[Rfam]
RNA sequence: GGAGGGUGCUGCGUGCCUGGUGGUCGCCGGAGUCUUCAAAACUCUUGAAGGGCUGUAAUGGUCCUUGAUUGGUUCAAUUCCUUUCCCCUCC
Numbered sequence: 001g002g003a004g005g006g007u008g009c010u011g012c013g014u015g016c017c018u019g020g021u022g023g024u025c026g027c028c029g030g031a032g033u034c035u036u037c038a039a040a041a042c043u044c045u046u047g048a049a050g051g052g053c054u055g056u057a058a059u060g061g062u063c064c065u066u067g068a069u070u071g072g073u074u075c076a077a078u079u080c081c082u083u084u085c086c087c088c089u090c091c
Stems, first nucleotide, its partner, number of pairs: 001091006008084001011027003015024003029045005048066005071081002
Rfam assigns this 91-nucleotide RNA sequence from Rubritalea squalenifaciens to the family "Selenocysteine transfer RNA". A search with the family's covariance model found it, with a score of 51 bits. Clan: tRNA clan.